[Rfam]
RNA sequence: CGACGUCCGGCUGGUUCCCCCAACAGGUCGGACGUCAGUGGCCCCGGUCUCCCCCCGACCGGGGCCACUUCUC
Number, nucleotide and partner (000 for none) at each position: 001c000002g036003a035004c034005g033006u032007c031008c030009g029010g028011c027012u026013g000014g000015u000016u000017c000018c000019c000020c000021c000022a000023a000024c000025a000026g012027g011028u010029c009030g008031g007032a006033c005034g004035u003036c002037a069038g068039u067040g066041g065042c064043c063044c062045c061046g060047g059048u058049c057050u000051c000052c000053c000054c000055c000056c000057g049058a048059c047060c046061g045062g044063g043064g042065c041066c040067a039068c038069u037070u000071c000072u000073c000

Shown here is a 73-nucleotide RNA sequence from Curtobacterium sp. MR_MD2014, a member of the family "6C RNA". The match comes from Rfam's covariance-model search (54 bits). NCBI's taxonomy places the organism under Bacteria, Bacillati, Actinomycetota, Actinomycetes, Curtobacterium.